[Rfam]
RNA sequence: UCUAUCCUUGUCUAUGGGAGCUCUUACAUCCAAUGAACGUCUAGUGAGGGUGUAGGUGCUAACACCACAAUAAACCAUUCGCGCCUCAUUCUUCGGAAUCGGGUGCAAUUUUUGUAUCC
Numbered sequence: 001u002c003u004a005u006c007c008u009u010g011u012c013u014a015u016g017g018g019a020g021c022u023c024u025u026a027c028a029u030c031c032a033a034u035g036a037a038c039g040u041c042u043a044g045u046g047a048g049g050g051u052g053u054a055g056g057u058g059c060u061a062a063c064a065c066c067a068c069a070a071u072a073a074a075c076c077a078u079u080c081g082c083g084c085c086u087c088a089u090u091c092u093u094c095g096g097a098a099u100c101g102g103g104u105g106c107a108a109u110u111u112u113u114g115u116a117u118c119c
Stems, first nucleotide, its partner, number of pairs: 005019004020059002023056001025054007037045002081106006088099004

The record is a 119-nucleotide RNA from Ladona fulva, which matches "U4atac minor spliceosomal RNA" in Rfam. Pairs were carried over by alignment from the consensus structure, which is taken from published work. Rfam's curators write: U4atac is an essential component of the minor U12-type spliceosome complex which is required for removal of the rarer class of eukaryotic introns (AT-AC, U12-type). For this family Rfam cites "Evolutionary conservation of minor U12-type spliceosome between plants and humans" (Lorkovic et al., RNA, 2005). The match comes from Rfam's covariance-model search (86 bits). It is annotated as a spliceosomal small nuclear RNA. Gene Ontology terms of the family: mRNA 5'-splice site recognition, spliceosomal tri-snRNP complex assembly and pre-mRNA 5'-splice site binding. The source organism's lineage runs through Eukaryota, Mandibulata, Odonata, Libellulidae and Ladona.